[Rfam]
Nucleotides: 082
Stems, first nucleotide, its partner, number of pairs: 004056005011049002015045002017070005030041004059077005
Number, partner (000 for none) and nucleotide at each position: 001000u002000c003000g004056g005055c006054g007053a008052c009000a010000c011049g012048c013000g014000a015045c016044u017070g018069g019068c020067g021066g022000c023000a024000u025000c026000g027000a028000g029000g030041a031040u032039g033038g034000a035000c036000c037000a038033c039032c040031a041030u042000c043000g044016g045015g046000g047000a048012g049011c050000a051000c052008g053007u054006c055005g056004u057000g058000g059077g060076c061075g062074c063073c064000g065000u066021c067020c068019g069018c070017c071000u072000g073063g074062g075061u076060g077059c078000c079000c080000a081000c082000g
Source information:
This 82-nucleotide RNA sequence from Pseudosporangium ferrugineum belongs to the Rfam family "ZMP/ZTP riboswitch aptamer (pfl RNA motif)". Rfam links the family to the GO terms one-carbon metabolic process and regulation of purine nucleotide biosynthetic process. A search with the family's covariance model found it, with a score of 50 bits. The organism belongs to Pseudosporangium, within Bacteria. On this family, see Jones and Ferre-D'Amare, Nat Struct Mol Biol 2015: "Recognition of the bacterial alarmone ZMP through long-distance association of two RNA subdomains".